A member of the RNA family "Purine riboswitch aptamer" from Clostridium argentinense, 104 nucleotides long. The organism belongs to Clostridium argentinense, within Bacteria. A search with the family's covariance model found it, with a score of 79 bits. Pairs were carried over by alignment from the consensus structure, which is taken from published work.
[Rfam]
RNA sequence: AAAAACAUAAUAAUGUUCACUUAUAUAAGUCUAGCGAUAUGGGCUAGAUGUUUCUACCGAGCUACCGUAAAUAGUUCUAUACUAUAAGUGCAAGGAUUAUUAUU
Numbered sequence: 001a002a003a004a005a006c007a008u009a010a011u012a013a014u015g016u017u018c019a020c021u022u023a024u025a026u027a028a029g030u031c032u033a034g035c036g037a038u039a040u041g042g043g044c045u046a047g048a049u050g051u052u053u054c055u056a057c058c059g060a061g062c063u064a065c066c067g068u069a070a071a072u073a074g075u076u077c078u079a080u081a082c083u084a085u086a087a088g089u090g091c092a093a094g095g096a097u098u099a100u101u102a103u104u
Stems, first nucleotide, its partner, number of pairs: 018090008029049007059077006